[Rfam]
RNA sequence: GCGGGAUUCUUGAAUGAGAUCUCCAGCCGCCCGGCGGUACCGUCCUGGCUCACCUUCCCCGGAGCCAGGCCGGUCGCACCAGGCGCGGAUGGGGGUCUGGUCCAAGAAUCCGCAUGCU
Numbered sequence: 001g002c003g004g005g006a007u008u009c010u011u012g013a014a015u016g017a018g019a020u021c022u023c024c025a026g027c028c029g030c031c032c033g034g035c036g037g038u039a040c041c042g043u044c045c046u047g048g049c050u051c052a053c054c055u056u057c058c059c060c061g062g063a064g065c066c067a068g069g070c071c072g073g074u075c076g077c078a079c080c081a082g083g084c085g086c087g088g089a090u091g092g093g094g095g096u097c098u099g100g101u102c103c104a105a106g107a108a109u110c111c112g113c114a115u116g117c118u
Base pairs, nucleotide, nucleotide: 010105011104012103014101015100018097019096021094022093023092024091025090027088028087029086030085031082033080034079039074040073041072042071044069045068046067047066048065049064050063051062
Dot-bracket structure: .........(((.((..((.(((((.(((((.((....((((.((((((((..........)))))))).))))....)).)..)))).))))).))..)).))).............
A member of the RNA family "mraW RNA" from Arthrobacter mobilis, 118 nucleotides long. Lineage of the source: Bacteria > Actinomycetota > Micrococcales > Micrococcaceae > Arthrobacter. By type it is a cis-regulatory element. The match comes from Rfam's covariance-model search (57 bits).